[Rfam]
RNA sequence: GGAAAGCCGAUGAUGGAGAAAAGUAAAUCAUCCCAGCCUUGCAGGGAGAAGAAGCCGAGACUGGAAGCUUCUUUAAGGUAUGGCCGAUUGAAGUUCCCUCCGGAGUUGCUGUGCUGAAAGUUCAGUAGGUGCAGACGGGAUUUCCCGCCGUUAAAAGGGAAGAGGUAUCGGAUCAUGUCCCGUACCGGUAAAGUGGCCUUUUUGCAAUUAGGGUGGUACCACGGAAAGUAACUCCGUCCCUUGG
Numbered sequence: 001g002g003a004a005a006g007c008c009g010a011u012g013a014u015g016g017a018g019a020a021a022a023g024u025a026a027a028u029c030a031u032c033c034c035a036g037c038c039u040u041g042c043a044g045g046g047a048g049a050a051g052a053a054g055c056c057g058a059g060a061c062u063g064g065a066a067g068c069u070u071c072u073u074u075a076a077g078g079u080a081u082g083g084c085c086g087a088u089u090g091a092a093g094u095u096c097c098c099u100c101c102g103g104a105g106u107u108g109c110u111g112u113g114c115u116g117a118a119a120g121u122u123c124a125g126u127a128g129g130u131g132c133a134g135a136c137g138g139g140a141u142u143u144c145c146c147g148c149c150g151u152u153a154a155a156a157g158g159g160a161a162g163a164g165g166u167a168u169c170g171g172a173u174c175a176u177g178u179c180c181c182g183u184a185c186c187g188g189u190a191a192a193g194u195g196g197c198c199u200u201u202u203u204g205c206a207a208u209u210a211g212g213g214u215g216g217u218a219c220c221a222c223g224g225a226a227a228g229u230a231a232c233u234c235c236g237u238c239c240c241u242u243g244g
Stems, first nucleotide, its partner, number of pairs: 008105001015101004026089004037078003048074008109134007136150003196205002210241004221237005